[Rfam]
RNA sequence: GUGCAAAUGAUGGAAAAACUGCUGUGUGUGUGUGGGGGGGGAAUGACAUGAACAAAGGAACCACUGAUGUGC
Numbered sequence: 001g002u003g004c005a006a007a008u009g010a011u012g013g014a015a016a017a018a019c020u021g022c023u024g025u026g027u028g029u030g031u032g033u034g035g036g037g038g039g040g041g042a043a044u045g046a047c048a049u050g051a052a053c054a055a056a057g058g059a060a061c062c063a064c065u066g067a068u069g070u071g072c
Stems, first nucleotide, its partner, number of pairs: 001072005
Notes
Rfam assigns this 72-nucleotide RNA from Sus scrofa to the family "Small nucleolar RNA SNORD42". From the family's description: snoRNA U42 is found in intron 3 of the ribosomal protein L23a (RPL23a) gene in humans and is also present in mice. The source organism's lineage runs through Eukaryota, Craniata, Tetrapoda, Eutheria and Sus. A reference for the family is Galardi et al. (2002), "Purified box C/D snoRNPs are able to reproduce site-specific 2'-O-methylation of target RNA in vitro", Mol Cell Biol.